This 150-nucleotide RNA sequence from Desulfosporosinus youngiae belongs to the Rfam family "c-di-AMP riboswitch aptamer (ydaO/yuaA leader)". The source organism's lineage runs through Bacteria, Bacillota, Clostridia, Desulfitobacteriaceae and Desulfosporosinus youngiae.

RNA sequence: UGUUCUCUAUCGCUUAAUUCUAAUCUAGAAGCGGGGAAACCAUUUUCCGGGGUGAAUCCUUCACAUAAUUGUCGAUAAUUUAGUGAGGGUAGGGUUACUCUUCAACCCGAAUCCGUCAGCUAACUUCGUAAGCGUUGCAAGAGAGGAACG
Dot-bracket structure: ..........((((...(((.......)))((((((....(.......)(((.....(((((((..................)))))))..((((.........))))...))).........)))))).))))................